[Rfam]
RNA sequence: UGUGACGGUGAUGAGUUGCACUAUUAGUCAGGCUGCUGAUUGCAGUGGCAAAGCAGACCUGUCCUGACUACCUGUGGUGACACCCAAUGUGCACAGGGGCCAUCUGAGUCACU
Number, nucleotide and partner (000 for none) at each position: 001u000002g112003u000004g110005a109006c108007g000008g000009u000010g000011a000012u000013g000014a000015g000016u000017u000018g000019c000020a000021c000022u000023a000024u067025u066026a065027g064028u000029c061030a060031g059032g000033c056034u055035g054036c000037u000038g000039a000040u051041u050042g049043c048044a000045g000046u000047g000048g043049c042050a041051a040052a000053g000054c035055a034056g033057a000058c000059c031060u030061g029062u000063c000064c027065u026066g025067a024068c000069u000070a000071c000072c000073u000074g000075u000076g000077g000078u000079g000080a000081c000082a000083c000084c000085c000086a000087a000088u000089g000090u000091g000092c000093a000094c000095a000096g000097g000098g000099g000100c000101c000102a000103u000104c000105u000106g000107a000108g006109u005110c004111a000112c002113u000
The family of this 113-nucleotide RNA from Anabas testudineus is "Small nucleolar RNA SNORD67". Taxonomically the source falls in Anabas (Eukaryota, Bilateria, Euteleostomi, Neopterygii). Rfam links the family to the GO terms RNA processing and nucleolus. On this family, see Huttenhofer et al., EMBO J 2001: "RNomics: an experimental approach that identifies 201 candidates for novel, small, non-messenger RNAs in mouse". By type it is a C/D-box small nucleolar RNA. The base pairs follow the family's consensus structure. From the family's description: snoRNA HBII-166 belongs to the C/D family of snoRNAs. The match comes from Rfam's covariance-model search (62 bits).